Source information
The family of this 131-nucleotide RNA sequence from Priestia megaterium is "PyrR binding site". The family has 41 seed sequences and 1,498 matches in Rfam 15.1. The source organism's lineage runs through Bacteria, Bacillati, Bacillota, Bacilli and Priestia megaterium.
RNA sequence: UACCCUUUUAAAUGGUAGUCCCGUGAGGCUGCAAAAGGGGGGUCACUAUACAAGGAAAACUAUACUGCGGUAUAGCGUUCUUCCUUGUAUGCUGAAAACCUCUUUGCCUCUGCGUAAAGAGGUUUUUUAAU
Numbered sequence: 001u002a003c004c005c006u007u008u009u010a011a012a013u014g015g016u017a018g019u020c021c022c023g024u025g026a027g028g029c030u031g032c033a034a035a036a037g038g039g040g041g042g043u044c045a046c047u048a049u050a051c052a053a054g055g056a057a058a059a060c061u062a063u064a065c066u067g068c069g070g071u072a073u074a075g076c077g078u079u080c081u082u083c084c085u086u087g088u089a090u091g092c093u094g095a096a097a098a099c100c101u102c103u104u105u106g107c108c109u110c111u112g113c114g115u116a117a118a119g120a121g122g123u124u125u126u127u128u129a130a131u
Base pairs, nucleotide, nucleotide: 003039004038005037006036007035008034009033015032016031017030018029019028020027047091048090049089050088051087052086053085054084055083056082057081095126096125097124098123099122100121101120102119103118104117105116106115107114